RNA sequence: UGCCGCCCAUAAUUGCAAUCUCGUAUAUAUUUGGGAAAGGCCCGAAUGUCUCUACCCGGAAACCUUAAUUUCUGGACUACGAGCUUGAUGAAUCGAUGU
Numbered sequence: 001u002g003c004c005g006c007c008c009a010u011a012a013u014u015g016c017a018a019u020c021u022c023g024u025a026u027a028u029a030u031u032u033g034g035g036a037a038a039g040g041c042c043c044g045a046a047u048g049u050c051u052c053u054a055c056c057c058g059g060a061a062a063c064c065u066u067a068a069u070u071u072c073u074g075g076a077c078u079a080c081g082a083g084c085u086u087g088a089u090g091a092a093u094c095g096a097u098g099u
Stems, first nucleotide, its partner, number of pairs: 018085001020083006029047007056075007
RNA: Purine riboswitch aptamer